[Rfam]
RNA sequence: AAGUGAAUGAUGAAAGAAAUCAGACGGAUUCCCAUUGAUUUUUCCGUGAGAUUAAAAACCCCUUGACUGACACUA
Numbered sequence: 001a002a003g004u005g006a007a008u009g010a011u012g013a014a015a016g017a018a019a020u021c022a023g024a025c026g027g028a029u030u031c032c033c034a035u036u037g038a039u040u041u042u043u044c045c046g047u048g049a050g051a052u053u054a055a056a057a058a059c060c061c062c063u064u065g066a067c068u069g070a071c072a073c074u075a
Stems, first nucleotide, its partner, number of pairs: 002074004

The family of this 75-nucleotide RNA from Acer yangbiense is "Small nucleolar RNA R12". The family has 9 seed sequences and 992 matches in Rfam 15.1. A search with the family's covariance model found it, with a score of 43 bits. Rfam describes the family as follows. snoR12 is a C/D box small nucleolar RNA, which acts as a methylation guide for 25S ribosomal RNA in plants. snoR12 has been alternatively named snoZ44 in Arabidopsis and snoZ131 in rice.